[Rfam]
RNA sequence: UGCGCUGCCUCGGGGAGCCUGACAGGGCUGAGAUGCAUGAUGCGGACCCGUUGAACCUGAACCGGCUGAUACCGGCGUAGGGAAGGUGAGAGAUGACCCG
Numbered sequence: 001u002g003c004g005c006u007g008c009c010u011c012g013g014g015g016a017g018c019c020u021g022a023c024a025g026g027g028c029u030g031a032g033a034u035g036c037a038u039g040a041u042g043c044g045g046a047c048c049c050g051u052u053g054a055a056c057c058u059g060a061a062c063c064g065g066c067u068g069a070u071a072c073c074g075g076c077g078u079a080g081g082g083a084a085g086g087u088g089a090g091a092g093a094u095g096a097c098c099c100g
Base pairs, nucleotide, nucleotide: 006088007087008086009085010084011050012049013048014047017028018027019026020025035043036042037041056081057080058079059078062075063074064073065072
The record is a 100-nucleotide RNA sequence from Oceanomicrobium pacificus, which matches "TPP riboswitch aptamer (THI element)" in Rfam. The family's consensus secondary structure is taken from published work.